A member of the RNA family "Streptomyces RNA 5676" from Streptomyces fungicidicus, 130 nucleotides long. Rfam classes the family as a small RNA. Rfam's curators write: Identified by deep sequencing of transcriptome at the end of exponential growth phase. Appears longer on northern blot than sequencing transcript. This indicates processing step. Streptomyces specific.

RNA sequence: GGAUGAGAGAUACACCCCGCUCACAGGGGACUGUGGGCGGAUCGGGCCGAGGCCUCCCCAGCUUCGACCUGGCCGUGCCCUCGCGCACACGAACCGGGGCCUGAAGGCUUCGGGUCUCCUCACGAUCGGA
Number, nucleotide and partner (000 for none) at each position: 001g000002g000003a000004u122005g121006a120007g119008a000009g118010a117011u000012a000013c000014a000015c000016c000017c040018c039019g038020c037021u036022c035023a034024c033025a032026g031027g000028g000029g000030a000031c026032u025033g024034u023035g022036g021037g020038c019039g018040g017041a000042u072043c071044g070045g069046g068047c000048c066049g065050a064051g063052g062053c061054c000055u000056c000057c000058c000059c000060a000061g053062c052063u051064u050065c049066g048067a000068c046069c045070u044071g043072g042073c000074c000075g088076u087077g086078c085079c000080c000081u000082c000083g000084c000085g078086c077087a076088c075089a000090c000091g000092a000093a000094c113095c112096g111097g110098g109099g108100c107101c106102u000103g000104a000105a000106g101107g100108c099109u098110u097111c096112g095113g094114g000115u000116c000117u010118c009119c007120u006121c005122a004123c128124g000125a000126u000127c000128g123129g000130a000
The organism belongs to Streptomyces, within Bacteria.